A member of the RNA family "MIR1520 microRNA precursor family" from Vigna radiata, 126 nucleotides long. The organism belongs to Vigna radiata, within Eukaryota.
[Rfam]
RNA sequence: UGACAAUUUUUUGAUACCGAUGACGUGUCAUGUUGUCAUUGGUCGAUUUUUAAGAAAAUGAAAAAAAUAAAUCUUAUUUUCUUAAAAGUCGACCAAUGACAACGUGACACGUCAUCGGUGUAAAAA
Numbered sequence: 001u002g003a004c005a006a007u008u009u010u011u012u013g014a015u016a017c018c019g020a021u022g023a024c025g026u027g028u029c030a031u032g033u034u035g036u037c038a039u040u041g042g043u044c045g046a047u048u049u050u051u052a053a054g055a056a057a058a059u060g061a062a063a064a065a066a067a068u069a070a071a072u073c074u075u076a077u078u079u080u081c082u083u084a085a086a087a088g089u090c091g092a093c094c095a096a097u098g099a100c101a102a103c104g105u106g107a108c109a110c111g112u113c114a115u116c117g118g119u120g121u122a123a124a125a126a
Stems, first nucleotide, its partner, number of pairs: 020115004025110002029106003033102004038097007
Rfam 15.1 lists 1,934 matches to the family in 15 species.
Clan: MIR1520 microRNA precursor clan.